[Rfam]
RNA sequence: CAUUACUGCCAGGGGCGCAUUUAUUGCUGAGAUAGGUGAAAGCCUUGUCCCUUAGCAUCUGAUCUGGGUAAUACCAGCGUAGAGAGGCCGUACUUUUUUAGU
Numbered sequence: 001c002a003u004u005a006c007u008g009c010c011a012g013g014g015g016c017g018c019a020u021u022u023a024u025u026g027c028u029g030a031g032a033u034a035g036g037u038g039a040a041a042g043c044c045u046u047g048u049c050c051c052u053u054a055g056c057a058u059c060u061g062a063u064c065u066g067g068g069u070a071a072u073a074c075c076a077g078c079g080u081a082g083a084g085a086g087g088c089c090g091u092a093c094u095u096u097u098u099u100a101g102u
Base pairs, nucleotide, nucleotide: 006090008088009087010086011052012051013050014049017027018026019025034045035044036043037042058083059082060081061080064077065076066075067074
Dot-bracket structure: .....(.(((((((..(((.....)))......((((....))))...)))).....((((..((((......))))..))))..))).)............

Shown here is a 102-nucleotide RNA from Catenibacterium sp. CAG:290, a member of the family "TPP riboswitch aptamer (THI element)". The base pairs follow the family's consensus structure, which is taken from published work. Vitamin B(1) in its active form thiamin pyrophosphate (TPP) is an essential coenzyme that is synthesised by coupling of pyrimidine and thiazole moieties in bacteria.